Rfam assigns this 108-nucleotide RNA sequence from Acer yangbiense to the family "Plastid-psbA-1 3UTR RNA".
Its Rfam clan is "Plastid-psbA 3UTR RNA clan".
For this family Rfam cites "Retrograde signaling in plants: A critical review focusing on the GUN pathway and beyond" (Richter et al., Plant Commun, 2023).
The base pairs follow the family's consensus structure, which was predicted with LocARNA.
Plastid psbA-1 is a non-coding RNA (ncRNA) present in plastids.
RNA sequence: UUGAAGCUCCUUCUACAAAUGGAUAAGAUUUCGAUCUUCGUGUAUACGAGUUUUUGAAAAUAACGGAGCAAUGCCGAUCCUCUUCCAAUAAAUCGGUAUUGCUCUGUU
Numbered sequence: 001u002u003g004a005a006g007c008u009c010c011u012u013c014u015a016c017a018a019a020u021g022g023a024u025a026a027g028a029u030u031u032c033g034a035u036c037u038u039c040g041u042g043u044a045u046a047c048g049a050g051u052u053u054u055u056g057a058a059a060a061u062a063a064c065g066g067a068g069c070a071a072u073g074c075c076g077a078u079c080c081u082c083u084u085c086c087a088a089u090a091a092a093u094c095g096g097u098a099u100u101g102c103u104c105u106g107u108u
Stems, first nucleotide, its partner, number of pairs: 008023003012019001062108013076094003081090001083088001